[Rfam]
RNA sequence: AUGCAUACCAGUAGACCUUUUCUAGCUCUUCUAAUGGCCAGACAGGGGGGAUGGUAAAUGCAAGAGCAAAUCCGGAGUUGCUACCAGAUGCGAUCAGCCUACCAUGUGACUGAUCUGAACUGCAUGACUCCAACACGC
Numbered sequence: 001a002u003g004c005a006u007a008c009c010a011g012u013a014g015a016c017c018u019u020u021u022c023u024a025g026c027u028c029u030u031c032u033a034a035u036g037g038c039c040a041g042a043c044a045g046g047g048g049g050g051a052u053g054g055u056a057a058a059u060g061c062a063a064g065a066g067c068a069a070a071u072c073c074g075g076a077g078u079u080g081c082u083a084c085c086a087g088a089u090g091c092g093a094u095c096a097g098c099c100u101a102c103c104a105u106g107u108g109a110c111u112g113a114u115c116u117g118a119a120c121u122g123c124a125u126g127a128c129u130c131c132a133a134c135a136c137g138c
Stems, first nucleotide, its partner, number of pairs: 003061004016047004021042003074131004079127001082124001084122001094113004
RNA: Small nucleolar RNA SNORA58
Organism: Chrysemys picta